[Rfam]
RNA: RNA Staph. aureus A
RNA sequence: AGUUAACGAUUACAAAGAAUAUAUUGGGUAGCGACUGUAUAUUCUCUGAAGUUAACUUAAUACGUAGUAGUGAUUAAAGUUCUCCCAAGGAUACUACUAGGAAGGCACACUUCGAGUUCUCCGAAGUGUGCUUU
Dot-bracket structure: .((((((........(((((((((.(........).))))))))).....))))))............((((.(......(((.....))).).))))....((((((((((((.......)))))))))))).